[Rfam]
RNA sequence: AAUGUCCGCCACAGAUCUCUCCCUCCCCUGGAGUGAUCCCGGAACGAAGACUACUCCCCAAGUCCCGUUCCCAAGCCCCGCUGGCUCCCCCUGCCUGCGGGGCUUUUUU
Number, nucleotide and partner (000 for none) at each position: 001a000002a000003u000004g012005u011006c000007c000008g000009c000010c000011a005012c004013a000014g038015a037016u036017c035018u000019c033020u032021c031022c030023c000024u000025c000026c000027c000028c000029u000030g022031g021032a020033g019034u000035g017036a016037u015038c014039c000040c000041g071042g070043a069044a068045c067046g066047a000048a000049g064050a063051c062052u061053a000054c000055u000056c000057c000058c000059c000060a000061a052062g051063u050064c049065c000066c046067g045068u044069u043070c042071c041072c000073a000074a104075g103076c102077c101078c100079c099080g098081c097082u000083g095084g094085c093086u000087c000088c000089c000090c000091c000092u000093g085094c084095c083096u000097g081098c080099g079100g078101g077102g076103c075104u074105u000106u000107u000108u000109u000
Shown here is a 109-nucleotide RNA from Luteimonas cucumeris, a member of the family "Xanthomonadaceae sRNA sX13". A search with the family's covariance model found it, with a score of 77 bits. The base pairs follow the family's consensus structure, which was predicted with CMfinder. It is annotated as a small RNA.